[Rfam]
RNA: Alphaproteobacterial sRNA ar35
RNA sequence: AGUCGGGCAAGAUGUCUGCUUGCAACCUGCAGGCUGCCUAAUUCGAAUUCUGCUUUCGCUUUGACCACGGAUGUACUGGCACUGCUGGAAGCAAGUUGAUUGAAAGGCCGGACCAUGAGUCCGGCCUUUUUCGUU
Number, nucleotide and partner (000 for none) at each position: 001a000002g000003u046004c045005g044006g043007g000008c000009a039010a000011g000012a000013u000014g000015u000016c036017u000018g034019c033020u032021u000022g000023c000024a000025a000026c000027c000028u000029g000030c000031a000032g020033g019034c018035u000036g016037c000038c000039u009040a000041a000042u000043u006044c005045g004046a003047a000048u000049u095050c000051u093052g092053c091054u090055u089056u000057c000058g085059c084060u000061u000062u081063g080064a000065c079066c078067a077068c000069g000070g000071a000072u000073g000074u000075a000076c000077u067078g066079g065080c063081a062082c000083u000084g059085c058086u000087g000088g000089a055090a054091g053092c052093a051094a000095g049096u000097u133098g132099a131100u000101u000102g130103a129104a128105a127106g126107g125108c124109c123110g122111g121112a000113c119114c000115a000116u000117g000118a000119g113120u000121c111122c110123g109124g108125c107126c106127u105128u104129u103130u102131u099132c098133g097134u000135u000